[Rfam]
RNA sequence: AGAGCUCACAAGUUUGAGGCCACAGCAGAAGAACUCACGACACAGCCCAGUCAGAUUCCAACAAAUCUGCAAGUUCUGCU
Number, nucleotide and partner (000 for none) at each position: 001a000002g000003a000004g000005c000006u000007c000008a000009c000010a000011a000012g000013u000014u000015u000016g048017a000018g047019g046020c045021c000022a000023c000024a080025g079026c078027a077028g076029a075030a074031g043032a000033a000034c000035u000036c000037a000038c000039g000040a000041c000042a000043c031044a000045g020046c019047c018048c016049a000050g000051u000052c069053a068054g067055a066056u065057u064058c000059c000060a000061a000062c000063a000064a057065a056066u055067c054068u053069g052070c000071a000072a000073g000074u030075u029076c028077u027078g026079c025080u024
RNA: Mammalian CPEB3 ribozyme
Organism: Alligator sinensis